[Rfam]
The family of this 79-nucleotide sequence from Xenorhabdus cabanillasii is "MicA sRNA".

RNA sequence: GAAGACGCGCAAAAUUGUUAUCAUCCUUAUUUUUCUAAGAGACUUUAUUUGGUUUCGGCCACCAAAUGGUGGCCAUUUU
Numbered sequence: 001g002a003a004g005a006c007g008c009g010c011a012a013a014a015u016u017g018u019u020a021u022c023a024u025c026c027u028u029a030u031u032u033u034u035c036u037a038a039g040a041g042a043c044u045u046u047a048u049u050u051g052g053u054u055u056c057g058g059c060c061a062c063c064a065a066a067u068g069g070u071g072g073c074c075a076u077u078u079u
Stems, first nucleotide, its partner, number of pairs: 024042002027038003057074007
NCBI's taxonomy places the organism under Bacteria, Pseudomonadati, Gammaproteobacteria, Morganellaceae, Xenorhabdus.